[Rfam]
Shown here is a 238-nucleotide sequence from Strongylus vulgaris, a member of the family "Nuclear RNase P". The source organism's lineage runs through Eukaryota, Metazoa, Rhabditida, Rhabditomorpha and Strongylus. By type it is a ribozyme. The literature on the family includes a 1998 paper in Annu Rev Biochem by Frank and Pace, "Ribonuclease P: unity and diversity in a tRNA processing ribozyme". Clan: RNaseP clan.
RNA sequence: GUUUUCCGGAAGAAGGCGCGGGGGGUGACUCACAGGCCCAUGUGGCCUUCGUUCCCCCGGGAAGGUCUGAGAUAAGGUCAUGCUCGUUGGUUGAGCAAUGGGUUUGAGAAGGACCUCGUUCGUGAGAACGGGAGGCUGUAACAGAAAAGUCCCCUGCGGGGUUUGAAAACAGUCUCGACCAGCAGUGUCUGAGUGCGAUCGCCCACAUUAACACAAUUCAGACUAGUCUUCGGAAAAC
Numbered sequence: 001g002u003u004u005u006c007c008g009g010a011a012g013a014a015g016g017c018g019c020g021g022g023g024g025g026u027g028a029c030u031c032a033c034a035g036g037c038c039c040a041u042g043u044g045g046c047c048u049u050c051g052u053u054c055c056c057c058c059g060g061g062a063a064g065g066u067c068u069g070a071g072a073u074a075a076g077g078u079c080a081u082g083c084u085c086g087u088u089g090g091u092u093g094a095g096c097a098a099u100g101g102g103u104u105u106g107a108g109a110a111g112g113a114c115c116u117c118g119u120u121c122g123u124g125a126g127a128a129c130g131g132g133a134g135g136c137u138g139u140a141a142c143a144g145a146a147a148a149g150u151c152c153c154c155u156g157c158g159g160g161g162u163u164u165g166a167a168a169a170c171a172g173u174c175u176c177g178a179c180c181a182g183c184a185g186u187g188u189c190u191g192a193g194u195g196c197g198a199u200c201g202c203c204c205a206c207a208u209u210a211a212c213a214c215a216a217u218u219c220a221g222a223c224u225a226g227u228c229u230u231c232g233g234a235a236a237a238c
Stems, first nucleotide, its partner, number of pairs: 001238004008231003015204002021058005034048005067221005076180004101115005116131006132176007151161003